A member of the RNA family "tRNA" from Drosophila simulans, 66 nucleotides long. Rfam classes the family as a transfer RNA. The base pairs follow the family's consensus structure, which is taken from published work.

RNA sequence: AAGGCUUUAAGUUAAUAAAACUAAUAACCUUCAAAGCUAUAAAUAAAGAAAUUUCUUUAAGCCUUA
Numbered sequence: 001a002a003g004g005c006u007u008u009a010a011g012u013u014a015a016u017a018a019a020a021c022u023a024a025u026a027a028c029c030u031u032c033a034a035a036g037c038u039a040u041a042a043a044u045a046a047a048g049a050a051a052u053u054u055c056u057u058u059a060a061g062c063c064u065u066a
Base pairs, nucleotide, nucleotide: 001065002064003063004062005061006060007059010022011021012020013019024040025039026038028036045058046057047056048055